[Rfam]
Bacillaceae-1 RNA: a 67-nucleotide RNA from Lentibacillus salicampi. It scores 77 bits against the family's covariance model. Rfam classes the family as a small RNA. The base pairs follow the family's consensus structure, which is taken from published work. The source organism's lineage runs through Bacteria, Bacilli, Caryophanales, Bacillaceae and Lentibacillus.
RNA sequence: AAGUAAGGAACAAAGGCUAAAAACGCCACAUCCUGUGGCAACACCUUUGUGACCUGCAUCGUGCAGG
Numbered sequence: 001a002a003g004u005a006a007g008g009a010a011c012a013a014a015g016g017c018u019a020a021a022a023a024c025g026c027c028a029c030a031u032c033c034u035g036u037g038g039c040a041a042c043a044c045c046u047u048u049g050u051g052a053c054c055u056g057c058a059u060c061g062u063g064c065a066g067g
Stems, first nucleotide, its partner, number of pairs: 011049006025039005053067005